Shown here is a 77-nucleotide sequence from Albula glossodonta, a member of the family "mir-196 microRNA precursor family". Gene Ontology terms of the family: RISC complex and gene silencing by miRNA. The organism belongs to Albula, within Eukaryota. The family's consensus secondary structure was predicted with PFOLD. It scores 67 bits against the family's covariance model. A reference for the family is Lagos-Quintana et al. (2003), "New microRNAs from mouse and human", RNA.
RNA sequence: UCUGUGAUUUAGGUAGUUUCAUGUUGUUGGGCUGCAAGUUUGAUAUCACACUAACCUGAAACUGCCUGAAUUACUUC
Numbered sequence: 001u002c003u004g005u006g007a008u009u010u011a012g013g014u015a016g017u018u019u020c021a022u023g024u025u026g027u028u029g030g031g032c033u034g035c036a037a038g039u040u041u042g043a044u045a046u047c048a049c050a051c052u053a054a055c056c057u058g059a060a061a062c063u064g065c066c067u068g069a070a071u072u073a074c075u076u077c
Stems, first nucleotide, its partner, number of pairs: 004074016023055004028050002031047001
Dot-bracket structure: ...((((((((((((((((...((((.((.(...............).)).))))...))))))))))))))))...